[Rfam]
RNA sequence: AGUUUCUCUGGGAAAGCUAUCGGCCAAAUUUAACUGUCCGAGCUGCCCUCAGAAAAACUCU
Numbered sequence: 001a002g003u004u005u006c007u008c009u010g011g012g013a014a015a016g017c018u019a020u021c022g023g024c025c026a027a028a029u030u031u032a033a034c035u036g037u038c039c040g041a042g043c044u045g046c047c048c049u050c051a052g053a054a055a056a057a058c059u060c061u
Stems, first nucleotide, its partner, number of pairs: 001059005007053003010049003015044003020041004024036001
RNA: mir-1822 microRNA precursor family
Organism: Caenorhabditis elegans